The record is a 256-nucleotide part of an RNA from Candidatus Methanoperedens nitratireducens, which matches "Archaeal large subunit ribosomal RNA" in Rfam. Lineage of the source: Archaea > Methanobacteriota > Methanosarcinales > ANME-2 cluster > Candidatus Methanoperedens.
RNA sequence: GAGUGUACCCAAGUGGCGAGGCUAACCACACAUAGGAAGCCGAAGCGAAAGCAAUAUGCGCGCAACACUGUGAGGCGCAGCGUAUACAAGUGCGUGGAGUCACUAGAGUACGACCCGAAUCCUAGCGAUCUAGGCGGAGACAGGUUGAAGCGUCCCGAAAGGGGCGUGGAGGACCGCAUGCGGUUUUGAUUUGCAAAUCAUUCGCGCGAUCCCCGUCUAGGAGUGAAAGGCUAAUCGAGCUGGGUGAUAGCUGGUU
Numbered sequence: 001g002a003g004u005g006u007a008c009c010c011a012a013g014u015g016g017c018g019a020g021g022c023u024a025a026c027c028a029c030a031c032a033u034a035g036g037a038a039g040c041c042g043a044a045g046c047g048a049a050a051g052c053a054a055u056a057u058g059c060g061c062g063c064a065a066c067a068c069u070g071u072g073a074g075g076c077g078c079a080g081c082g083u084a085u086a087c088a089a090g091u092g093c094g095u096g097g098a099g100u101c102a103c104u105a106g107a108g109u110a111c112g113a114c115c116c117g118a119a120u121c122c123u124a125g126c127g128a129u130c131u132a133g134g135c136g137g138a139g140a141c142a143g144g145u146u147g148a149a150g151c152g153u154c155c156c157g158a159a160a161g162g163g164g165c166g167u168g169g170a171g172g173a174c175c176g177c178a179u180g181c182g183g184u185u186u187u188g189a190u191u192u193g194c195a196a197a198u199c200a201u202u203c204g205c206g207c208g209a210u211c212c213c214c215g216u217c218u219a220g221g222a223g224u225g226a227a228a229g230g231c232u233a234a235u236c237g238a239g240c241u242g243g244g245u246g247a248u249a250g251c252u253g254g255u256u
Stems, first nucleotide, its partner, number of pairs: 005111004010106001012104006020041004026035001028033001045052002058078004065071002081094004114254002117251001121244006130220008139211002141208001143175004150167007180205004186200001188199002222232003